This 116-nucleotide RNA from Novosphingobium sp. MD-1 belongs to the Rfam family "TPP riboswitch aptamer (THI element)".
RNA sequence: GCUCACACCCCGGGGAGCCUGCGUUUCCAAAAGGCUGAGAGGUGGGUUUCGCAGCCCACGACCCGUCGAACCUGAACCCGUUAGCACGGGCGGAGGGAAGGGCGGCCGUCUUGGCG
Numbered sequence: 001g002c003u004c005a006c007a008c009c010c011c012g013g014g015g016a017g018c019c020u021g022c023g024u025u026u027c028c029a030a031a032a033g034g035c036u037g038a039g040a041g042g043u044g045g046g047u048u049u050c051g052c053a054g055c056c057c058a059c060g061a062c063c064c065g066u067c068g069a070a071c072c073u074g075a076a077c078c079c080g081u082u083a084g085c086a087c088g089g090g091c092g093g094a095g096g097g098a099a100g101g102g103c104g105g106c107c108g109u110c111u112u113g114g115c116g
Stems, first nucleotide, its partner, number of pairs: 006104001008102003011065004017035004042059007071096003077090004
Rfam links the family to the GO term thiamine pyrophosphate binding. The source organism's lineage runs through Bacteria, Alphaproteobacteria, Sphingomonadales, Sphingomonadaceae and Novosphingobium.